[Rfam]
RNA sequence: CUGCCAUUUAUGAUGAAACCAAUACGGAUAAAAGAGUUUCGACUUGUGUGUCCGAGAGCGCAAACCCCAUGUGGAUUAUUCCGUUGCCUUCCUUCUGACAUUAUCC
Numbered sequence: 001c002u003g004c005c006a007u008u009u010a011u012g013a014u015g016a017a018a019c020c021a022a023u024a025c026g027g028a029u030a031a032a033a034g035a036g037u038u039u040c041g042a043c044u045u046g047u048g049u050g051u052c053c054g055a056g057a058g059c060g061c062a063a064a065c066c067c068c069a070u071g072u073g074g075a076u077u078a079u080u081c082c083g084u085u086g087c088c089u090u091c092c093u094u095c096u097g098a099c100a101u102u103a104u105c106c
Stems, first nucleotide, its partner, number of pairs: 003105001025083004